Record summary:
Streptomyces sRNA 4677: a 255-nucleotide sequence from Streptomyces palmae. On this family, see Hindra et al., PLoS One 2014: "Complex intra-operonic dynamics mediated by a small RNA in Streptomyces coelicolor". The source organism's lineage runs through Bacteria, Actinomycetota, Kitasatosporales, Streptomycetaceae and Streptomyces. A search with the family's covariance model found it, with a score of 85 bits.

[Rfam]
RNA sequence: UACGACGGUGGCGCGGGAGAUCAAAGACCAAGAACCCUCGGGAAAGAACCCACCAACCCAACCAAACCUCGGACAUGUCACCCGAGCGGGUGAUUGCUGCCGACCGGGCUGGCGCACCGGUGGUAGCGCGGGGCAGGCUCAGGCUCGGCAAACCGCCAUCAACCCAGCCGACAAGUCCCUAAAAGACGUCGGCCCCCGCCGGGACUGCCAUCCCGAUACGAGGGCCUGACCACGCAGGAAGUCCAACCCUUCCCG
Numbered sequence: 001u002a003c004g005a006c007g008g009u010g011g012c013g014c015g016g017g018a019g020a021u022c023a024a025a026g027a028c029c030a031a032g033a034a035c036c037c038u039c040g041g042g043a044a045a046g047a048a049c050c051c052a053c054c055a056a057c058c059c060a061a062c063c064a065a066a067c068c069u070c071g072g073a074c075a076u077g078u079c080a081c082c083c084g085a086g087c088g089g090g091u092g093a094u095u096g097c098u099g100c101c102g103a104c105c106g107g108g109c110u111g112g113c114g115c116a117c118c119g120g121u122g123g124u125a126g127c128g129c130g131g132g133g134c135a136g137g138c139u140c141a142g143g144c145u146c147g148g149c150a151a152a153c154c155g156c157c158a159u160c161a162a163c164c165c166a167g168c169c170g171a172c173a174a175g176u177c178c179c180u181a182a183a184a185g186a187c188g189u190c191g192g193c194c195c196c197c198g199c200c201g202g203g204a205c206u207g208c209c210a211u212c213c214c215g216a217u218a219c220g221a222g223g224g225c226c227u228g229a230c231c232a233c234g235c236a237g238g239a240a241g242u243c244c245a246a247c248c249c250u251u252c253c254c255g
Stems, first nucleotide, its partner, number of pairs: 008233003017070003078093006108163001110161003191226005197220002201214004237253005
Rfam's curators write: Located in the intergenic region between anti-sigma factor SCO4677 gene and a putative regulatory protein gene SCO4676. scr4677 expression requires the SCO4677 activity and scr4677 sRNA itself seem to affect the levels of the SCO4676-associated transcripts.